RNA sequence: AUUAAUAACCGGGGUCGUGAACCCUACUAAUUAAU
Numbered sequence: 001a002u003u004a005a006u007a008a009c010c011g012g013g014g015u016c017g018u019g020a021a022c023c024c025u026a027c028u029a030a031u032u033a034a035u
Base pairs, nucleotide, nucleotide: 001035002034003033004032005031006030011025012024013023014022015021
Shown here is a 35-nucleotide sequence from Abyssalbus ytuae, a member of the family "S16-Flavobacteria ribosomal protein leader".
On this family, see Eckert and Weinberg, BMC Microbiol 2020: "Discovery of 20 novel ribosomal leader candidates in bacteria and archaea".
It is annotated as a cis-regulatory leader.
The family's consensus secondary structure is taken from published work.